[Rfam]
RNA: Purine riboswitch aptamer
RNA sequence: UUAAAAUAAGUUGUAAAAACUUGUAUAUGUCAGGUAAUAGGGACCUGAUGUUUCUACUAGGCCGCCGUAAAUGGCCUUGCUACAAGUAAAGAUAGUACUGUA
Numbered sequence: 001u002u003a004a005a006a007u008a009a010g011u012u013g014u015a016a017a018a019a020c021u022u023g024u025a026u027a028u029g030u031c032a033g034g035u036a037a038u039a040g041g042g043a044c045c046u047g048a049u050g051u052u053u054c055u056a057c058u059a060g061g062c063c064g065c066c067g068u069a070a071a072u073g074g075c076c077u078u079g080c081u082a083c084a085a086g087u088a089a090a091g092a093u094a095g096u097a098c099u100g101u102a
Base pairs, nucleotide, nucleotide: 019087020086021085022084023083024082025081029049030048031047032046033045034044035043059077060076061075062074063073064072
Dot-bracket structure: ..................(((((((...(((((((.......))))))).........((((((.......))))))...)))))))...............